[Rfam]
RNA: Purine riboswitch aptamer
Organism: Lachnospiraceae bacterium 5_1_57FAA
RNA sequence: AAAAUGAAAUAACUGGAAACUUAUAUAGGUUCAUAAUCGGUUGAACGUUUCUACCAACUACCGGAAUAGUUGUCUAUAAGCAUCCGCAUGAGAAGU
Numbered sequence: 001a002a003a004a005u006g007a008a009a010u011a012a013c014u015g016g017a018a019a020c021u022u023a024u025a026u027a028g029g030u031u032c033a034u035a036a037u038c039g040g041u042u043g044a045a046c047g048u049u050u051c052u053a054c055c056a057a058c059u060a061c062c063g064g065a066a067u068a069g070u071u072g073u074c075u076a077u078a079a080g081c082a083u084c085c086g087c088a089u090g091a092g093a094a095g096u
Stems, first nucleotide, its partner, number of pairs: 020080006029046005055072006